[Rfam]
RNA sequence: UUAUAAUCGUUGAUAGGGAUAAGUAAGCUUAGUGAUGCAACUGCAGAAAGCCGAUGGUUGAUGCGAAUCGGUGUUGCGGACUUUGACUGAAUGGACCCUGGAGAGCCCGGCUUAACGAGAAGCGAUGCUUCUUUAGUAGGUCAGGACGACUAAUCCGCGUUAAGGAAGAUAAGGUUGCUUAUGAGUGUUUUUUAUGUGCGAUUAAGCAGCGAAUUAGGGUGGCACCACGGUCUCACGUCCCUUUC
Numbered sequence: 001u002u003a004u005a006a007u008c009g010u011u012g013a014u015a016g017g018g019a020u021a022a023g024u025a026a027g028c029u030u031a032g033u034g035a036u037g038c039a040a041c042u043g044c045a046g047a048a049a050g051c052c053g054a055u056g057g058u059u060g061a062u063g064c065g066a067a068u069c070g071g072u073g074u075u076g077c078g079g080a081c082u083u084u085g086a087c088u089g090a091a092u093g094g095a096c097c098c099u100g101g102a103g104a105g106c107c108c109g110g111c112u113u114a115a116c117g118a119g120a121a122g123c124g125a126u127g128c129u130u131c132u133u134u135a136g137u138a139g140g141u142c143a144g145g146a147c148g149a150c151u152a153a154u155c156c157g158c159g160u161u162a163a164g165g166a167a168g169a170u171a172a173g174g175u176u177g178c179u180u181a182u183g184a185g186u187g188u189u190u191u192u193u194a195u196g197u198g199c200g201a202u203u204a205a206g207c208a209g210c211g212a213a214u215u216a217g218g219g220u221g222g223c224a225c226c227a228c229g230g231u232c233u234c235a236c237g238u239c240c241c242u243u244u245c
Stems, first nucleotide, its partner, number of pairs: 007104002015099004026088002029085001031083001039075003050072006106145002109142006147159002174210007216242004227238003
A member of the RNA family "T-box leader" from Paenibacillus sp. J45TS6, 245 nucleotides long. Taxonomically the source falls in Paenibacillus (Bacteria, Bacillati, Bacilli, Caryophanales). By type it is a cis-regulatory leader. Rfam describes the family as follows. Uncharged tRNA acts as the effector for transcription antitermination of genes in the T-box leader family. T-boxes are found upstream of many aminoacyl-tRNA synthetase genes and some amino acid biosynthetic genes usually in Gram-positive bacteria. The anticodon of a specific tRNA base pairs to a specifier sequence within the T-box motif, and the NCCA acceptor tail of the tRNA base pairs to a conserved bulge in the T-box antiterminator hairpin.